[Rfam]
RNA sequence: GGUUGGUCUGCGUGCAGUGGUGCUUACAACUAAUUGAUCACAACCAGUUACAGAUUCCUUUGUUCCUUCUCUACUGCCACUGCUCCACUUGACCAACCUUUA
Numbered sequence: 001g002g003u004u005g006g007u008c009u010g011c012g013u014g015c016a017g018u019g020g021u022g023c024u025u026a027c028a029a030c031u032a033a034u035u036g037a038u039c040a041c042a043a044c045c046a047g048u049u050a051c052a053g054a055u056u057c058c059u060u061u062g063u064u065c066c067u068u069c070u071c072u073a074c075u076g077c078c079a080c081u082g083c084u085c086c087a088c089u090u091g092a093c094c095a096a097c098c099u100u101u102a
Stems, first nucleotide, its partner, number of pairs: 001098008010090001014086001016081006028064003032060002

Shown here is a 102-nucleotide RNA from Prolemur simus, a member of the family "Y RNA". A search with the family's covariance model found it, with a score of 67 bits. By type it is a non-coding RNA gene.